RNA: S4-Flavobacteria ribosomal protein leader
RNA sequence: AGCUAUCGAAGGAAAUUAUUUUAAUUCAUAGCU
Numbered sequence: 001a002g003c004u005a006u007c008g009a010a011g012g013a014a015a016u017u018a019u020u021u022u023a024a025u026u027c028a029u030a031g032c033u
Stems, first nucleotide, its partner, number of pairs: 001033006008027001009022004